This 172-nucleotide sequence from Natronobacillus azotifigens belongs to the Rfam family "M-box riboswitch aptamer (ykoK leader)". Gene Ontology terms of the family: regulation of gene expression and response to magnesium ion.
[Rfam]
RNA sequence: AAAAUAACUUGUUAGGAGAGGCUCCUAAGUGAACAUAGGCUAUUGCCCAAAAACGUCCAGAGACGCCAAUGGGUAGAACAGGCAUGAUCGGAUUAAGGUCUGCUUAAGAUAGCUGAUUCAAUUCUUGAAUCUACGUCACUUAGUGCUAAAACCCAGAUGAGGAGUUUAUAGG
Numbered sequence: 001a002a003a004a005u006a007a008c009u010u011g012u013u014a015g016g017a018g019a020g021g022c023u024c025c026u027a028a029g030u031g032a033a034c035a036u037a038g039g040c041u042a043u044u045g046c047c048c049a050a051a052a053a054c055g056u057c058c059a060g061a062g063a064c065g066c067c068a069a070u071g072g073g074u075a076g077a078a079c080a081g082g083c084a085u086g087a088u089c090g091g092a093u094u095a096a097g098g099u100c101u102g103c104u105u106a107a108g109a110u111a112g113c114u115g116a117u118u119c120a121a122u123u124c125u126u127g128a129a130u131c132u133a134c135g136u137c138a139c140u141u142a143g144u145g146c147u148a149a150a151a152c153c154c155a156g157a158u159g160a161g162g163a164g165u166u167u168a169u170a171g172g
Stems, first nucleotide, its partner, number of pairs: 005168003009164002011158002013096001015153002020147003025143008039113005045074005054065004081104004087099003115131005